[Rfam]
RNA sequence: CACCGGCGCGUAACAAACGCCGAGGGUCUGAUAGCCGGCUUGUCCCCCGCCGCAUCAGACUUGGACAAAGGCCUCAUCCCCUCUCCGGGCCUUUGUCCCCAUUUUGAAGCCGUCAUGGUUCCUCCAGGCCAUGGCGGCUUUUU
Numbered sequence: 001c002a003c004c005g006g007c008g009c010g011u012a013a014c015a016a017a018c019g020c021c022g023a024g025g026g027u028c029u030g031a032u033a034g035c036c037g038g039c040u041u042g043u044c045c046c047c048c049g050c051c052g053c054a055u056c057a058g059a060c061u062u063g064g065a066c067a068a069a070g071g072c073c074u075c076a077u078c079c080c081c082u083c084u085c086c087g088g089g090c091c092u093u094u095g096u097c098c099c100c101a102u103u104u105u106g107a108a109g110c111c112g113u114c115a116u117g118g119u120u121c122c123u124c125c126a127g128g129c130c131a132u133g134g135c136g137g138c139u140u141u142u143u
Stems, first nucleotide, its partner, number of pairs: 027059006037051003063098011107139001110137011
This 143-nucleotide RNA sequence from Arminella tubonensis belongs to the Rfam family "Alphaproteobacterial sRNA ar7". NCBI's taxonomy places the organism under Bacteria, Pseudomonadati, Pseudomonadota, Rhizobiaceae, Arminella. On this family, see del Val et al., RNA Biol 2012: "A survey of sRNA families in alpha-proteobacteria". The base pairs follow the family's consensus structure. The match comes from Rfam's covariance-model search (107 bits).